The record is an 84-nucleotide sequence from Carlito syrichta, which matches "Stem loopII regulatory element in POLB" in Rfam.
[Rfam]
RNA sequence: AGCCCAGCAGUAGUCUAACUUAUUUCUUCAUCUCUGCUCUGCAAGGGUUUUGGUGUUUUUAAAUGAUCGUUUCUUCCUCAUACU
Numbered sequence: 001a002g003c004c005c006a007g008c009a010g011u012a013g014u015c016u017a018a019c020u021u022a023u024u025u026c027u028u029c030a031u032c033u034c035u036g037c038u039c040u041g042c043a044a045g046g047g048u049u050u051u052g053g054u055g056u057u058u059u060u061a062a063a064u065g066a067u068c069g070u071u072u073c074u075u076c077c078u079c080a081u082a083c084u
Base pairs, nucleotide, nucleotide: 010076012074016061017060018059024053025052030048031047032046033045035043036042037041

A search with the family's covariance model found it, with a score of 62 bits. Lineage of the source: Eukaryota > Sarcopterygii > Euarchontoglires > Tarsiiformes > Carlito. By type it is a cis-regulatory element. For this family Rfam cites "Hairpin structure within the 3'UTR of DNA polymerase beta mRNA acts as a post-transcriptional regulatory element and interacts with Hax-1" (Sarnowska et al., Nucleic Acids Res, 2007).